[Rfam]
The family of this 169-nucleotide sequence from Enterobacteriaceae bacterium strain FGI 57 is "sok antitoxin (CssrC)". Also identified in Shigella as CssrC. Rfam classes the family as an antitoxin RNA. On this family, see Peng et al., PLoS One 2011: "An integrated approach for finding overlooked genes in Shigella".
RNA sequence: GGGUGCUUGAGGCUAUCUGUCUCAGGCAACACCAAAAGGCAGAUAGAGAAAAGCCCCGGAAACAUUCAACGCCCUGCAAGGCGUUCAACAUUUACCGAGGCCACAUCUAAUGCUUCACAAUACUAGAUUAGCCUCUUACAGACCUUCGGGUCAAGGAGAGCAGGCUAUG
Numbered sequence: 001g002g003g004u005g006c007u008u009g010a011g012g013c014u015a016u017c018u019g020u021c022u023c024a025g026g027c028a029a030c031a032c033c034a035a036a037a038g039g040c041a042g043a044u045a046g047a048g049a050a051a052a053g054c055c056c057c058g059g060a061a062a063c064a065u066u067c068a069a070c071g072c073c074c075u076g077c078a079a080g081g082c083g084u085u086c087a088a089c090a091u092u093u094a095c096c097g098a099g100g101c102c103a104c105a106u107c108u109a110a111u112g113c114u115u116c117a118c119a120a121u122a123c124u125a126g127a128u129u130a131g132c133c134u135c136u137u138a139c140a141g142a143c144c145u146u147c148g149g150g151u152c153a154a155g156g157a158g159a160g161c162a163g164g165c166u167a168u169g
Stems, first nucleotide, its partner, number of pairs: 001057003005054004013046010026033001058096002062091001065088002097135005105128005111122002139164001143160001